[Rfam]
RNA sequence: UGUCGAGGAAAUCCUCGGUAGUUAACUACAGCCGAUUUCGUAUUUCCUCGGCAGUUAACUACCGAAGGGGUAU
Numbered sequence: 001u002g003u004c005g006a007g008g009a010a011a012u013c014c015u016c017g018g019u020a021g022u023u024a025a026c027u028a029c030a031g032c033c034g035a036u037u038u039c040g041u042a043u044u045u046c047c048u049c050g051g052c053a054g055u056u057a058a059c060u061a062c063c064g065a066a067g068g069g070g071u072a073u
Base pairs, nucleotide, nucleotide: 012069013068015066016064017063018062019061020060021059022058023057024056025055026054027053029051